A member of the RNA family "Iron response element II", 31 nucleotides long.
RNA sequence: AUAUUUUCUGCCGCAGUGUCAGCAAAAAUAA
Numbered sequence: 001a002u003a004u005u006u007u008c009u010g011c012c013g014c015a016g017u018g019u020c021a022g023c024a025a026a027a028a029u030a031a
Stems, first nucleotide, its partner, number of pairs: 002030006009024003013020001014018001
The family's RNA type in Rfam is cis-regulatory element.
From the family's description: IRE, TFRC, SLC40A1, SDHB, SLC11A2, CDC42BPA, ACO2, ALAS2_H.SAPIENS, CDC14A, EPAS1, ALAS2, qoxD, Hao1, NDUFS1, transferrin, Aconitate.